[Rfam]
Nucleotides: 061
Base pairs, nucleotide, nucleotide: 034058035057037054038053039052040051043050044049
Number, partner (000 for none) and nucleotide at each position: 001000c002000a003000g004000u005000g006000u007000u008000a009000u010000g011000g012000c013000u014000a015000u016000u017000u018000u019000a020000g021000a022000a023000u024000u025000u026000g027000u028000c029000u030000a031000g032000c033000a034058g035057g036000u037054u038053u039052u040051c041000u042000g043050g044049u045000u046000u047000u048000u049044a050043c051040g052039a053038g054037a055000c056000u057035c058034c059000c060000c061000c